[Rfam]
RNA: mir-374 microRNA precursor family
Organism: Homo sapiens
RNA sequence: ACACGGACAAUGAUAAUACAACCUGCUAAGUGCUAGGACACUUAGCAGGUUGUAUUAUAUCCAUCCGAGU
Number, nucleotide and partner (000 for none) at each position: 001a000002c000003a000004c000005g000006g000007a000008c000009a000010a000011u000012g000013a058014u057015a056016a055017u054018a053019c052020a051021a050022c000023c048024u047025g046026c000027u044028a043029a042030g041031u040032g039033c000034u000035a000036g000037g000038a000039c032040a031041c030042u029043u028044a027045g000046c025047a024048g023049g000050u021051u020052g019053u018054a017055u016056u015057a014058u013059a000060u000061c000062c000063a000064u000065c000066c000067g000068a000069g000070u000